[Rfam]
RNA sequence: AUGCCAUGGUGUGGGCACUUCCUUAGCAUCUCCAUAUAUGGAUACCAAGCCUCACACAAAGAUUCUCCAGUUUGCUACACGAACUGGGUAAGAGCAUUCCUGAUUU
Number, nucleotide and partner (000 for none) at each position: 001a000002u000003g105004c000005c102006a101007u000008g000009g000010u000011g000012u000013g000014g000015g000016c000017a000018c000019u000020u000021c000022c000023u000024u000025a000026g000027c000028a000029u000030c000031u000032c000033c000034a000035u000036a000037u000038a000039u000040g000041g000042a000043u000044a000045c000046c000047a000048a000049g000050c000051c000052u000053c000054a000055c000056a000057c074058a073059a000060a071061g000062a000063u000064u000065c000066u000067c000068c000069a000070g000071u060072u000073u058074g057075c000076u000077a000078c000079a000080c000081g000082a000083a000084c000085u000086g000087g000088g000089u000090a000091a000092g000093a000094g000095c000096a000097u000098u000099c000100c000101u006102g005103a000104u000105u003106u000
Rfam assigns this 106-nucleotide RNA from Apium graveolens to the family "Plant small nucleolar RNA R71". A reference for the family is Brown et al. (2003), "Plant snoRNAs: functional evolution and new modes of gene expression", Trends Plant Sci. Gene Ontology terms of the family: RNA processing and nucleolus. Rfam 15.1 lists 278,378 matches to the family in 216 species. NCBI's taxonomy places the organism under Eukaryota, Viridiplantae, Streptophytina, asterids, Apium.